RNA sequence: UGAUUAUACAGAAGAGCGGAGAGAUCGGGCUCGAAGAAACUCUGGCAACCAUCCCAAAAUGGACAAGGUGCCAAUACCCGGCCGGUAACGGAAUUAUAAUUU
Numbered sequence: 001u002g003a004u005u006a007u008a009c010a011g012a013a014g015a016g017c018g019g020a021g022a023g024a025u026c027g028g029g030c031u032c033g034a035a036g037a038a039a040c041u042c043u044g045g046c047a048a049c050c051a052u053c054c055c056a057a058a059a060u061g062g063a064c065a066a067g068g069u070g071c072c073a074a075u076a077c078c079c080g081g082c083c084g085g086u087a088a089c090g091g092a093a094u095u096a097u098a099a100u101u102u
Stems, first nucleotide, its partner, number of pairs: 002101007013043004021032003026081001028079001029077001044072004049068002052063003076094001082091003
RNA: SAM riboswitch aptamer (S box leader)
Organism: Maribellus comscasis